This 251-nucleotide part of an RNA from Halolamina pelagica belongs to the Rfam family "Archaeal large subunit ribosomal RNA". A search with the family's covariance model found it, with a score of 2799 bits. The base pairs follow the family's consensus structure, which is taken from published work. NCBI's taxonomy places the organism under Archaea, Halobacteria, Halobacteriales, Haloferacaceae, Halolamina. Gene Ontology terms of the family: structural constituent of ribosome and ribosome. The literature on the family includes a 2001 paper in Science by Yusupov et al., "Crystal structure of the ribosome at 5.5 A resolution".
[Rfam]
RNA sequence: UGGUACUUGACGAGAACGAUCGUAUAGUACGAGAGGAACUACGAUUGGAUGCCACUGGUGUACCGGUUGUUCGAGAGAGCAUUGCCGGGCAGCCACGCAUCACGGGGUAAGAGCUGAACGCAUCUAAGCUCGAAACCCACUCGGAAACGAAGUACCGUUGAGGACACUCGUAGAAGAGGAGUUAGAUAGACUCGGGAUGUACGCGCCAAGGCAACGAGGCGUUGAGUCCGCGAGCACUAACAGUCCGAAGC
Numbered sequence: 001u002g003g004u005a006c007u008u009g010a011c012g013a014g015a016a017c018g019a020u021c022g023u024a025u026a027g028u029a030c031g032a033g034a035g036g037a038a039c040u041a042c043g044a045u046u047g048g049a050u051g052c053c054a055c056u057g058g059u060g061u062a063c064c065g066g067u068u069g070u071u072c073g074a075g076a077g078a079g080c081a082u083u084g085c086c087g088g089g090c091a092g093c094c095a096c097g098c099a100u101c102a103c104g105g106g107g108u109a110a111g112a113g114c115u116g117a118a119c120g121c122a123u124c125u126a127a128g129c130u131c132g133a134a135a136c137c138c139a140c141u142c143g144g145a146a147a148c149g150a151a152g153u154a155c156c157g158u159u160g161a162g163g164a165c166a167c168u169c170g171u172a173g174a175a176g177a178g179g180a181g182u183u184a185g186a187u188a189g190a191c192u193c194g195g196g197a198u199g200u201a202c203g204c205g206c207c208a209a210g211g212c213a214a215c216g217a218g219g220c221g222u223u224g225a226g227u228c229c230g231c232g233a234g235c236a237c238u239a240a241c242a243g244u245c246c247g248a249a250g251c
Stems, first nucleotide, its partner, number of pairs: 001157008011143004017047008048101005056095003063088005068081005104138003111131005162246004166182004187239003191234004195229003203222005210215001